[Rfam]
RNA: Bacterial RNase P class A
Organism: Dongibacter bovis
RNA sequence: UAAGUAGUCAAGACAAUCGCGGCUGCCUUUAUGGCAGAUGAGGAAAGUCCGGGCUCCAGAGGGCAGCGUGCUGGAUAACGUCCAGCGGGGGUGACCCCAGGGAUAGCGCCACAGAGAACAAACCGCCGGGCAACCGGUAAGGCUGAAACGGUGCGGUAAGAGCGCACCAGCGGGCAGGUGACUGUCCGGCUUGGCAAGCCCCACGCGGAGCAAGACCUAAUAGGGAAGGGUUGAGGCGGCCCGCCGACCUUCCGGGUUGCGUCGCUUGAGCCGUGAGGCGACUCACGUGCCUAGAUAAAUGAUUGUCGCCGCGCAAGCGGAACAGAACUCGGCUUAUUGGCUGCUUGUAUU
Numbered sequence: 001u002a003a004g005u006a007g008u009c010a011a012g013a014c015a016a017u018c019g020c021g022g023c024u025g026c027c028u029u030u031a032u033g034g035c036a037g038a039u040g041a042g043g044a045a046a047g048u049c050c051g052g053g054c055u056c057c058a059g060a061g062g063g064c065a066g067c068g069u070g071c072u073g074g075a076u077a078a079c080g081u082c083c084a085g086c087g088g089g090g091g092u093g094a095c096c097c098c099a100g101g102g103a104u105a106g107c108g109c110c111a112c113a114g115a116g117a118a119c120a121a122a123c124c125g126c127c128g129g130g131c132a133a134c135c136g137g138u139a140a141g142g143c144u145g146a147a148a149c150g151g152u153g154c155g156g157u158a159a160g161a162g163c164g165c166a167c168c169a170g171c172g173g174g175c176a177g178g179u180g181a182c183u184g185u186c187c188g189g190c191u192u193g194g195c196a197a198g199c200c201c202c203a204c205g206c207g208g209a210g211c212a213a214g215a216c217c218u219a220a221u222a223g224g225g226a227a228g229g230g231u232u233g234a235g236g237c238g239g240c241c242c243g244c245c246g247a248c249c250u251u252c253c254g255g256g257u258u259g260c261g262u263c264g265c266u267u268g269a270g271c272c273g274u275g276a277g278g279c280g281a282c283u284c285a286c287g288u289g290c291c292u293a294g295a296u297a298a299a300u301g302a303u304u305g306u307c308g309c310c311g312c313g314c315a316a317g318c319g320g321a322a323c324a325g326a327a328c329u330c331g332g333c334u335u336a337u338u339g340g341c342u343g344c345u346u347g348u349a350u351u
Base pairs, nucleotide, nucleotide: 001347002346003345004344005343006342007341008340009339010338011337012307013306014305015304016303017302018301020040021039023037024036025035026034027033045335046334047333049332050331051330052329053328054210055209056208057207061242062241063240064239066206067205068204069203070202071085072084073083074082075081086100087098088097089096090095101201102200106199107198108195109194110193123142124141125138126137127136128135129134150168151167152166153165154164155163170190171188172187173186174185175184176183177182214263215262216261217259224253225252226251227250228249229248235245236244237243270290271289272287273286274285275284276283277282